[Rfam]
A member of the RNA family "Bacterial large signal recognition particle RNA" from Halanaerobium hydrogeniformans, 266 nucleotides long.
Its Rfam clan is "SRP clan".
RNA sequence: CCGCACUAAAUGGGGUGUUAGCGGUGCCCUGUAACCUGCAAACCGCUACAGCAGGAUUGAUGCCUCAUUGAGGGUUUUCUCUUUCAGGGUCUGGCCCUGUUAAGUAGUGUUGACAAUUGGGUCUCGCGCAAUGAAGUCUUAUGAACUCCGUCAGGUCCGGGAGGAAGCAGCGGUAAGUAAGUCGCUUCAUGUGCCGCGAGGGUGCCUGGUUCGAGCCAACUGCCAGGGUAACGCCUGGGAGGGGGAACUCGAUUUGAGGUGUGCGG
Numbered sequence: 001c002c003g004c005a006c007u008a009a010a011u012g013g014g015g016u017g018u019u020a021g022c023g024g025u026g027c028c029c030u031g032u033a034a035c036c037u038g039c040a041a042a043c044c045g046c047u048a049c050a051g052c053a054g055g056a057u058u059g060a061u062g063c064c065u066c067a068u069u070g071a072g073g074g075u076u077u078u079c080u081c082u083u084u085c086a087g088g089g090u091c092u093g094g095c096c097c098u099g100u101u102a103a104g105u106a107g108u109g110u111u112g113a114c115a116a117u118u119g120g121g122u123c124u125c126g127c128g129c130a131a132u133g134a135a136g137u138c139u140u141a142u143g144a145a146c147u148c149c150g151u152c153a154g155g156u157c158c159g160g161g162a163g164g165a166a167g168c169a170g171c172g173g174u175a176a177g178u179a180a181g182u183c184g185c186u187u188c189a190u191g192u193g194c195c196g197c198g199a200g201g202g203u204g205c206c207u208g209g210u211u212c213g214a215g216c217c218a219a220c221u222g223c224c225a226g227g228g229u230a231a232c233g234c235c236u237g238g239g240a241g242g243g244g245g246a247a248c249u250c251g252a253u254u255u256g257a258g259g260u261g262u263g264c265g266g
Stems, first nucleotide, its partner, number of pairs: 001266006009058003012030008035055005063259005072250005079243010092230002096227004101222001104220002107216002115211008123200006129191002132189005138181005148173004156165003
Dot-bracket structure: ((((((..(((((((((((...))))))))....(((((...........))))))))....(((((....(((((..((((((((((...((..((((.(..((.((......((((((((((((((((.(((((.(((((.....((((....(((....)))....))))...)))))...)))))))...))))))...))))))))...))..)).).)))).))...))))))))))..)))))....))))).))))))
It is annotated as a non-coding RNA gene. NCBI's taxonomy places the organism under Bacteria, Bacillati, Bacillota, Halanaerobiaceae, Halanaerobium.